[Rfam]
RNA: U4 spliceosomal RNA
RNA sequence: AGCUUUGUGCAGUGGCAGUAUCGUAGCCAGUGAGGUUUAUCCGAGGCGCGAUUAUUGCUAACAGAACGUUUGCCAAAUUUAUUUAUUUAUGUACUUUUUAAAAAAGACUAUUUAUUUAUUUGAGAGAGAGCACACAUGCG
Number, nucleotide and partner (000 for none) at each position: 001a000002g000003c000004u000005u000006u000007g000008u000009g000010c000011a000012g000013u000014g000015g000016c000017a000018g000019u000020a052021u051022c050023g049024u048025a000026g047027c046028c045029a000030g000031u000032g000033a000034g042035g041036u000037u000038u000039a000040u000041c035042c034043g000044a000045g028046g027047c026048g024049c023050g022051a021052u020053u000054a000055u000056u000057g000058c000059u000060a000061a000062c000063a000064g000065a000066a000067c000068g000069u000070u000071u000072g000073c000074c000075a000076a000077a000078u000079u000080u000081a000082u000083u000084u000085a116086u000087u114088u000089a111090u110091g109092u000093a000094c106095u105096u103097u102098u000099u000100a000101a000102a097103a096104a000105a095106g094107a000108c000109u091110a090111u089112u000113u000114a087115u000116u085117u000118a000119u000120u000121u000122g000123a000124g000125a000126g000127a000128g000129a000130g139131c138132a137133c000134a000135c000136a000137u132138g131139c130140g000